[Rfam]
RNA: mir-143 microRNA precursor family
Organism: Menidia menidia
RNA sequence: UGACCUGCGGCCCUCGGUGCAGUGCUGCAUCUCUGGUCAGUUGGUAGUCUGAGAUGAAGCACUGUAGCUCGGGACGGAGGGCCA
Dot-bracket structure: ..........(((..(.(((((((((.((((((.(((........).)).)))))).))))))))).)..)))...........